[Rfam]
RNA sequence: UAAAGAGUAGAGAUGUAGCGUGAAGUGCUAGUGGAUGGGAUGUUGCCACUAGACGAAAAUGAUUUUGCGACUGCUUCUCGCAUCCGCUUAA
Numbered sequence: 001u002a003a004a005g006a007g008u009a010g011a012g013a014u015g016u017a018g019c020g021u022g023a024a025g026u027g028c029u030a031g032u033g034g035a036u037g038g039g040a041u042g043u044u045g046c047c048a049c050u051a052g053a054c055g056a057a058a059a060u061g062a063u064u065u066u067g068c069g070a071c072u073g074c075u076u077c078u079c080g081c082a083u084c085c086g087c088u089u090a091a
Stems, first nucleotide, its partner, number of pairs: 001091001003089003010079004015074004019069003025054002028052007038085005058066002
RNA: THF (Tetrahydrofolate) riboswitch aptamer
Organism: Atopostipes suicloacalis